[Rfam]
RNA sequence: GAAAAGACCGAGGGGUGUCCCGACAAGGGGCUGAGAUUCUGUUGGCCGCAGGCAGCGCAGUGACCCUUUGAACCUGAUCCGGAUCAUGCCGGCGAAGGGACGGGUCAGAACACCUUUC
Number, nucleotide and partner (000 for none) at each position: 001g000002a000003a000004a000005a000006g106007a105008c104009c103010g000011a067012g066013g065014g064015g000016u000017g031018u030019c029020c028021c027022g000023a000024c000025a000026a000027g021028g020029g019030g018031c017032u000033g000034a000035g000036a000037u000038u000039c060040u059041g058042u057043u000044g000045g000046c000047c000048g000049c000050a000051g000052g000053c000054a000055g000056c000057g042058c041059a040060g039061u000062g000063a000064c014065c013066c012067u011068u000069u000070g000071a000072a000073c098074c097075u096076g000077a000078u000079c092080c091081g090082g089083a000084u000085c000086a000087u000088g000089c082090c081091g080092g079093c000094g000095a000096a075097g074098g073099g000100a000101c000102g000103g009104g008105u007106c006107a000108g000109a000110a000111c000112a000113c000114c000115u000116u000117u000118c000